[Rfam]
RNA sequence: GGAUCGGGCCUUUCAGGCAUCCUCUCCUUAACCUUUUCGGGCUGGCCUUCGGGUCAGCCCUUUUUUUUGUUCGUG
Numbered sequence: 001g002g003a004u005c006g007g008g009c010c011u012u013u014c015a016g017g018c019a020u021c022c023u024c025u026c027c028u029u030a031a032c033c034u035u036u037u038c039g040g041g042c043u044g045g046c047c048u049u050c051g052g053g054u055c056a057g058c059c060c061u062u063u064u065u066u067u068u069g070u071u072c073g074u075g
Stems, first nucleotide, its partner, number of pairs: 008018004039060009
RNA: Makes More Granules Regulator RNA (mmgR)